[Rfam]
RNA: Molybdenum/Tungsten riboswitch aptamer (Moco RNA motif)
RNA sequence: UACUUUUUGUUACUCCGAGUCCGGAGACCUAAGGUAUGAAGCGCUAUGGUCCCGGACCGAUAGGGUUUGCUUGGAAACGGGCAAGCCUCCCGUGUGGAAAGGAGCAUGUUUUUUUUGCUA
Numbered sequence: 001u002a003c004u005u006u007u008u009g010u011u012a013c014u015c016c017g018a019g020u021c022c023g024g025a026g027a028c029c030u031a032a033g034g035u036a037u038g039a040a041g042c043g044c045u046a047u048g049g050u051c052c053c054g055g056a057c058c059g060a061u062a063g064g065g066u067u068u069g070c071u072u073g074g075a076a077a078c079g080g081g082c083a084a085g086c087c088u089c090c091c092g093u094g095u096g097g098a099a100a101g102g103a104g105c106a107u108g109u110u111u112u113u114u115u116u117g118c119u120a
Base pairs, nucleotide, nucleotide: 011106013104014103015102016101019057020056021055022054023053024052026051027050028049029048033045034044035043063088064087065086066085067084068083069082070081071080072079073078089097090096